Shown here is a 78-nucleotide sequence from Mycobacterium talmoniae, a member of the family "Fluoride riboswitch aptamer (crcB RNA motif)".
It scores 44 bits against the family's covariance model.
Taxonomically the source falls in Mycobacterium (Bacteria, Actinomycetota, Actinomycetes, Mycobacteriales).
Rfam links the family to the GO terms positive regulation of gene expression and response to fluoride.
Nucleotides: 078
Stems, first nucleotide, its partner, number of pairs: 010026004016069003020065002049059003
Number, partner (000 for none) and nucleotide at each position: 001000u002000g003000g004000c005000g006000g007000c008000c009000a010026g011025g012024c013023g014000a015000u016069g017068g018067a019000u020065c021064u022000c023013c024012g025011c026010c027000g028000g029000g030000g031000u032000g033000u034000g035000u036000g037000c038000a039000c040000a041000c042000c043000c044000a045000a046000a047000c048000c049059g050058c051057c052000g053000a054000c055000c056000g057051g058050g059049c060000u061000g062000a063000u064021g065020g066000u067018u068017c069016c070000u071000g072000c073000u074000g075000g076000a077000a078000c